[Rfam]
RNA sequence: GCAGUAUCUUAUGAGGUCACAAGCCAGAAGUGCUCAGGGCACAGCCAUGUUAGAUUCCAGUGAAUCUGCAAAUUCUGCU
Numbered sequence: 001g002c003a004g005u006a007u008c009u010u011a012u013g014a015g016g017u018c019a020c021a022a023g024c025c026a027g028a029a030g031u032g033c034u035c036a037g038g039g040c041a042c043a044g045c046c047a048u049g050u051u052a053g054a055u056u057c058c059a060g061u062g063a064a065u066c067u068g069c070a071a072a073u074u075c076u077g078c079u
Base pairs, nucleotide, nucleotide: 015046016045017044021079025077026076027075028074029073030042031041032040051068052067053066054065055064056063057062
RNA: Mammalian CPEB3 ribozyme
Organism: Alligator sinensis